[Rfam]
RNA: Mammalian CPEB3 ribozyme
Organism: Alligator mississippiensis
RNA sequence: ACAGCAAGUUUGAGACUAUAGCAGAAAUGCUCAUGGCGGAGCCCUGUCAGAUUCCAAUGAAUCUGUGAAUUCUGCU
Dot-bracket structure: ...........[.[.[[..(((((((.((.......)).]].]]...(((((((....)))))))....)))))))